Source information
A member of the RNA family "MIR2619 microRNA precursor family" from Medicago truncatula, 176 nucleotides long. The base pairs follow the family's consensus structure, which was predicted with RNAalifold. Gene Ontology terms of the family: RISC complex and miRNA-mediated post-transcriptional gene silencing. NCBI's taxonomy places the organism under Eukaryota, Streptophytina, Embryophyta, fabids, Medicago.
RNA sequence: AAACAACCCCUAUGUAUUAGAUAUUUGGCAAUUUUGGCCCCCAAAGCCACUUUUGACUUAGUCUUCGCUGACGUGGCACCUCACUUAAGGGAUGUGGGUGCCACGUCAGCGAAGACUAAGUCAAAAGUGGCCUUGGGGGCCAAAACUGCCAAAGAUCCAAUACAUAGGGGCUGUUU
Numbered sequence: 001a002a003a004c005a006a007c008c009c010c011u012a013u014g015u016a017u018u019a020g021a022u023a024u025u026u027g028g029c030a031a032u033u034u035u036g037g038c039c040c041c042c043a044a045a046g047c048c049a050c051u052u053u054u055g056a057c058u059u060a061g062u063c064u065u066c067g068c069u070g071a072c073g074u075g076g077c078a079c080c081u082c083a084c085u086u087a088a089g090g091g092a093u094g095u096g097g098g099u100g101c102c103a104c105g106u107c108a109g110c111g112a113a114g115a116c117u118a119a120g121u122c123a124a125a126a127g128u129g130g131c132c133u134u135g136g137g138g139g140c141c142a143a144a145a146c147u148g149c150c151a152a153a154g155a156u157c158c159a160a161u162a163c164a165u166a167g168g169g170g171c172u173g174u175u176u
Base pairs, nucleotide, nucleotide: 001176002175004173005172007170008169011166012165013164014163015162016161017160018159020157021156022155024153025152026151027150028149029148030147032145033144034143035142036141037140038139039138040137041136042135043134044133071106072105074103075102076101077100078099079098080097